[Rfam]
Nucleotides: 291
Stems, first nucleotide, its partner, number of pairs: 001038003004023007028035002041288004046283002052278002055275002059269002062266005071261002073255001075250004081245005087239001091238008099227002103224004108218004113213004117156004122151004127146008158162001165208005176199003183192003
Number, partner (000 for none) and nucleotide at each position: 001038g002037c003036c004023g005022g006021a007020c008019a009018g010017a011000g012000u013000a014000g015000c016000g017010u018009c019008u020007g021006u022005c023004u024000g025000u026000a027000a028035c029034g030000g031000a032000g033000u034029c035028g036003g037002g038001c039000a040000a041288a042287g043286g044285g045000a046283c047282g048000u049000g050000a051000a052278g053277a054000g055275a056274u057000u058000c059269u060268g061000c062266g063265c064264c065263c066262g067000u068000c069000a070000u071261c072260c073255u074000c075250c076249g077248g078247g079000a080000g081245g082244g083243c084242g085241u086000g087239u088000c089000g090000a091238a092237a093236c094235c095234g096233a097232g098231u099227c100226u101000g102000a103224u104223c105222g106221a107000a108218g109217u110216u111215c112000a113213g114212g115211g116210u117156c118155a119154g120153c121000a122151u123150u124149g125148u126000g127146g128145g129144u130143c131142u132141c133140g134139c135000g136000g137000a138000a139134g140133c141132g142131a143130g144129a145128u146127c147000a148125a149124c150123a151122a152000g153120g154119c155118u156117g157000c158162c159000u160000a161000a162158g163000u164000a165208g166207g167206g168205g169204g170000g171000g172000a173000a174000c175000g176199c177198g178197u179000g180000a181000g182000g183192c184191c185190g186000u187000g188000a189000c190185c191184g192183g193000a194000g195000c196000a197178g198177c199176g200000a201000a202000a203000a204169c205168u206167c207166c208165c209000a210116g211115c212114c213113c214000c215111g216110a217109a218108u219000a220000g221106u222105c223104g224103a225000c226100a227099g228000a229000c230000a231098g232097c233096u234095c235094g236093g237092u238091u239087g240000a241085a242084u243083g244082c245081c246000g247078c248077c249076u250075g251000g252000a253000a254000g255073g256000c257000u258000c259000u260072g261071g262066c263065g264064g265063g266062u267000c268060c269059g270000c271000a272000g273000u274056a275055u276000g277053u278052c279000g280000a281000c282047u283046g284000g285044u286043u287042u288041u289000g290000u291000c